[Rfam]
RNA sequence: UUGCUCGAUAGUGUUCGCGUUGUUGUGAAGCCGCAGGGCUGGUAAGCGCAAAGCCAGCACCUCGCUAUGAGCAA
Numbered sequence: 001u002u003g004c005u006c007g008a009u010a011g012u013g014u015u016c017g018c019g020u021u022g023u024u025g026u027g028a029a030g031c032c033g034c035a036g037g038g039c040u041g042g043u044a045a046g047c048g049c050a051a052a053g054c055c056a057g058c059a060c061c062u063c064g065c066u067a068u069g070a071g072c073a074a
Stems, first nucleotide, its partner, number of pairs: 001074006008068006014029006035062003039057004